[Rfam]
Nucleotides: 070
Stems, first nucleotide, its partner, number of pairs: 002068005
Number, partner (000 for none) and nucleotide at each position: 001000g002068g003067g004066a005065c006064c007000a008000g009000u010000g011000a012000u013000a014000a015000c016000c017000a018000c019000u020000g021000g022000u023000g024000g025000c026000g027000u028000a029000u030000g031000a032000g033000u034000c035000a036000a037000g038000g039000a040000u041000g042000a043000u044000g045000a046000c047000u048000g049000u050000c051000u052000c053000u054000g055000a056000a057000a058000c059000u060000c061000u062000g063000a064006g065005g066004u067003c068002c069000a070000c
Small nucleolar RNA SNORD113/SNORD114 family: a 70-nucleotide RNA sequence from Marmota monax. It scores 74 bits against the family's covariance model. It is annotated as a C/D-box small nucleolar RNA. The family has 59 seed sequences and 5,721 matches in Rfam 15.1. Its Rfam clan is "SNORD74 clan". Rfam describes the family as follows. The imprinted human domain at 14q32 contains two clusters of tandemly repeated small nucleolar RNAs named 14q(I) and 14q(II) snoRNAs. Its family is annotated with RNA processing and nucleolus in the Gene Ontology.